Record summary:
This 94-nucleotide RNA sequence belongs to the Rfam family "PhotoRC-II RNA". By type it is a cis-regulatory element. The base pairs follow the family's consensus structure, which is taken from published work.
[Rfam]
RNA sequence: AAUCCGUUGUACACACCCCGCAAACCAAGACCUCUAGGGUGUAUAAAAACGUCUUUCAUAUCCUCUCUAAGGGUGAGAGGAAAUAGUAACUCCA
Numbered sequence: 001a002a003u004c005c006g007u008u009g010u011a012c013a014c015a016c017c018c019c020g021c022a023a024a025c026c027a028a029g030a031c032c033u034c035u036a037g038g039g040u041g042u043a044u045a046a047a048a049a050c051g052u053c054u055u056u057c058a059u060a061u062c063c064u065c066u067c068u069a070a071g072g073g074u075g076a077g078a079g080g081a082a083a084u085a086g087u088a089a090c091u092c093c094a
Stems, first nucleotide, its partner, number of pairs: 014041005020035001027055005061081007